The record is a 76-nucleotide RNA from Haemaphysalis longicornis, which matches "mir-190 microRNA precursor family" in Rfam. Pairs were carried over by alignment from the consensus structure, which was predicted with RNAalifold. It scores 64 bits against the family's covariance model. Taxonomically the source falls in Haemaphysalis (Eukaryota, Arthropoda, Chelicerata, Ixodidae). On this family, see Bar et al., Stem Cells 2008: "MicroRNA discovery and profiling in human embryonic stem cells by deep sequencing of small RNA libraries".

[Rfam]
RNA sequence: CCAGCUGUGAGAUAUGUUUGAUAUUCUUGGUUGUGCCCAUGAAUCAACCAGGAGUCAGACAUAUGCCCACAGAGGG
Numbered sequence: 001c002c003a004g005c006u007g008u009g010a011g012a013u014a015u016g017u018u019u020g021a022u023a024u025u026c027u028u029g030g031u032u033g034u035g036c037c038c039a040u041g042a043a044u045c046a047a048c049c050a051g052g053a054g055u056c057a058g059a060c061a062u063a064u065g066c067c068c069a070c071a072g073a074g075g076g
Stems, first nucleotide, its partner, number of pairs: 005072005012064011024052002029049005